[Rfam]
RNA sequence: UUUCCCUUUUAAAUGUAGUUCAGUGAGACUGCUAAGGGGCUUAUGAUAAUAGAACAGGUGGAGUUCGUCUGUUUUGUUAUACUAAAAAAGCUCUUUAUGCGCUCCUGGCAUAAAGAGCUUUUUUAU
Numbered sequence: 001u002u003u004c005c006c007u008u009u010u011a012a013a014u015g016u017a018g019u020u021c022a023g024u025g026a027g028a029c030u031g032c033u034a035a036g037g038g039g040c041u042u043a044u045g046a047u048a049a050u051a052g053a054a055c056a057g058g059u060g061g062a063g064u065u066c067g068u069c070u071g072u073u074u075u076g077u078u079a080u081a082c083u084a085a086a087a088a089a090g091c092u093c094u095u096u097a098u099g100c101g102c103u104c105c106u107g108g109c110a111u112a113a114a115g116a117g118c119u120u121u122u123u124u125a126u
Base pairs, nucleotide, nucleotide: 003039004038005037006036007035008034015032016031017030018029019028020027047079048078049077050076051075052074053073054072055071056070057069058068059067060066087121088120089119090118091117092116093115094114095113096112097111098110099109100108